Alphaproteobacterial ar14: a 123-nucleotide RNA sequence from Chelativorans sp. BNC1. Smr14C2 was renamed NfeR1 (Nodule Formation Efficiency RNA) highly expressed in salt stress and during the symbiotic interaction on legume roots. The base pairs follow the family's consensus structure. It is annotated as a small RNA.
RNA sequence: AAGUUCUCGACGGGGCUCCUCCUCCCAAAAAUCCCUGUCGGGUCGCGGUUAGCCUUUCCUCCUCCCUAGGCUGACCGACUUCAAAAGCACCCGCUGGACCUCCUCCCCCAGCGGGUGCUUUUU
Numbered sequence: 001a002a003g004u005u006c007u008c009g010a011c012g013g014g015g016c017u018c019c020u021c022c023u024c025c026c027a028a029a030a031a032u033c034c035c036u037g038u039c040g041g042g043u044c045g046c047g048g049u050u051a052g053c054c055u056u057u058c059c060u061c062c063u064c065c066c067u068a069g070g071c072u073g074a075c076c077g078a079c080u081u082c083a084a085a086a087g088c089a090c091c092c093g094c095u096g097g098a099c100c101u102c103c104u105c106c107c108c109c110a111g112c113g114g115g116u117g118c119u120u121u122u123u
Stems, first nucleotide, its partner, number of pairs: 007041003011037005017031001046077010087118011